[Rfam]
Histone 3' UTR stem-loop: a 46-nucleotide RNA from Psophia crepitans.
Rfam's curators write: The mRNAs of metazoan histone genes lack a poly-A tail. 3' end processing occurs at a site between a highly conserved stem-loop (modelled by this family) and a purine rich region around 20 nts downstream (the histone downstream element, or HDE). The stem-loop is bound by a 31 kDa stem-loop binding protein (SLBP - also termed the histone hairpin binding protein, or HBP). Together with U7 snRNA binding of the HDE, SLBP binding nucleate s the formation of the processing complex.
Lineage of the source: Eukaryota > Vertebrata > Dipnotetrapodomorpha > Amniota > Psophia.
The match comes from Rfam's covariance-model search (38 bits).
The literature on the family includes a 1995 paper in Nucleic Acids Res by Williams and Marzluff, "The sequence of the stem and flanking sequences at the 3' end of histone mRNA are critical determinants for the binding of the stem-loop binding protein".
By type it is a cis-regulatory element.

RNA sequence: CCAAAGGCUCUUUUCAGAGCCACCUACUGCUUCAGGAAAAGAGCUG
Numbered sequence: 001c002c003a004a005a006g007g008c009u010c011u012u013u014u015c016a017g018a019g020c021c022a023c024c025u026a027c028u029g030c031u032u033c034a035g036g037a038a039a040a041g042a043g044c045u046g
Stems, first nucleotide, its partner, number of pairs: 006021006